RNA sequence: CCGCCUCUCUCUCCGCCCACUCGGCCACCACGUGGCAGCCGGGUGAGGGCCUCGGGGCAGCGC
Numbered sequence: 001c002c003g004c005c006u007c008u009c010u011c012u013c014c015g016c017c018c019a020c021u022c023g024g025c026c027a028c029c030a031c032g033u034g035g036c037a038g039c040c041g042g043g044u045g046a047g048g049g050c051c052u053c054g055g056g057g058c059a060g061c062g063c
Stems, first nucleotide, its partner, number of pairs: 002060001005057004015050004020043006028035002
This 63-nucleotide RNA from Oryza meridionalis belongs to the Rfam family "MIR2907 microRNA precursor family". The family has 3 seed sequences and 136 matches in Rfam 15.1. The base pairs follow the family's consensus structure, which was predicted with RNAalifold. Gene Ontology terms of the family: RISC complex and miRNA-mediated post-transcriptional gene silencing. The source organism's lineage runs through Eukaryota, Streptophyta, Poales, Oryzoideae and Oryza.